[Rfam]
RNA sequence: AUUAUUAUAGCCAAUGAGGGUUAUCCGAGGCGUGGUUAUUGCUAGUUGAAAAUUAUUAUUAUUAUUAUUAUUAUUAUUAGUAGUAGUAGUAGUAGUAAUAAUUUCUGAUUGAGGCACACAAGCC
Numbered sequence: 001a002u003u004a005u006u007a008u009a010g011c012c013a014a015u016g017a018g019g020g021u022u023a024u025c026c027g028a029g030g031c032g033u034g035g036u037u038a039u040u041g042c043u044a045g046u047u048g049a050a051a052a053u054u055a056u057u058a059u060u061a062u063u064a065u066u067a068u069u070a071u072u073a074u075u076a077u078u079a080g081u082a083g084u085a086g087u088a089g090u091a092g093u094a095g096u097a098a099u100a101a102u103u104u105c106u107g108a109u110u111g112a113g114g115c116a117c118a119c120a121a122g123c124c
Stems, first nucleotide, its partner, number of pairs: 004036005010031003018026003067099013113124003
Annotation
U4 spliceosomal RNA: a 124-nucleotide RNA from Octopus sinensis. The match comes from Rfam's covariance-model search (61 bits). It is annotated as a spliceosomal small nuclear RNA. Clan: U4 clan. NCBI's taxonomy places the organism under Eukaryota, Eumetazoa, Spiralia, Octopoda, Octopus.